[Rfam]
Rfam assigns this 178-nucleotide sequence from Tolypothrix sp. NIES-4075 to the family "Antisense RNA which regulates isiA expression".

Nucleotides: 178
Stems, first nucleotide, its partner, number of pairs: 136175005145168004
Number, partner (000 for none) and nucleotide at each position: 001000g002000g003000u004000a005000g006000c007000u008000a009000a010000a011000a012000a013000u014000a015000g016000u017000u018000g019000u020000u021000g022000g023000g024000u025000u026000c027000a028000a029000u030000g031000u032000g033000g034000g035000a036000u037000c038000g039000c040000u041000c042000a043000c044000u045000a046000a047000a048000c049000g050000c051000a052000c053000u054000u055000g056000g057000c058000u059000a060000a061000u062000u063000g064000u065000u066000g067000a068000g069000u070000c071000g072000u073000a074000a075000a076000u077000g078000c079000c080000a081000c082000c083000a084000a085000a086000a087000a088000a089000c090000a091000u092000g093000g094000c095000u096000u097000u098000a099000c100000u101000u102000a103000c104000u105000a106000a107000c108000a109000a110000c111000a112000a113000c114000g115000c116000u117000c118000c119000c120000a121000c122000a123000c124000c125000c126000a127000a128000g129000a130000a131000a132000a133000u134000c135000a136175g137174g138173u139172g140171a141000a142000u143000g144000c145168c146167c147166a148165a149000a150000a151000u152000a153000g154000u155000a156000g157000u158000c159000a160000u161000u162000u163000u164000g165148u166147u167146g168145g169000c170000a171140u172139c173138a174137u175136c176000c177000c178000a